[Rfam]
RNA sequence: GCGGAUAAACAUCCGCUGGAAUGUAACCCUAUAAGCAAAGGGUUGAACCAUAAA
Numbered sequence: 001g002c003g004g005a006u007a008a009a010c011a012u013c014c015g016c017u018g019g020a021a022u023g024u025a026a027c028c029c030u031a032u033a034a035g036c037a038a039a040g041g042g043u044u045g046a047a048c049c050a051u052a053a054a
Stems, first nucleotide, its partner, number of pairs: 001016005017050003025044005

Shown here is a 54-nucleotide RNA sequence, a member of the family "eL15-Euryarchaeota ribosomal protein leader". By type it is a cis-regulatory leader.